[Rfam]
RNA sequence: UGAACACUGCCAUUAAGGGCGUUGUUCCCCAACCGGGAGCUACUUUACCAUAUUCAGAGUUC
Dot-bracket structure: .................((.((.(((((.......))))).)).))................
Numbered sequence: 001u002g003a004a005c006a007c008u009g010c011c012a013u014u015a016a017g018g019g020c021g022u023u024g025u026u027c028c029c030c031a032a033c034c035g036g037g038a039g040c041u042a043c044u045u046u047a048c049c050a051u052a053u054u055c056a057g058a059g060u061u062c
Stems, first nucleotide, its partner, number of pairs: 018046002021043002024040005

About this RNA
The record is a 62-nucleotide RNA from Coleofasciculus chthonoplastes, which matches "Plastid-psbN 5UTR RNA" in Rfam. The family's consensus secondary structure was predicted with LocARNA. Plastid psbN is a non-coding RNA (ncRNA) recognised in plastids. For this family Rfam cites "The primary transcriptome of barley chloroplasts: numerous noncoding RNAs and the dominating role of the plastid-encoded RNA polymerase" (Zhelyazkova et al., Plant Cell, 2012). The organism belongs to Coleofasciculus chthonoplastes, within Bacteria.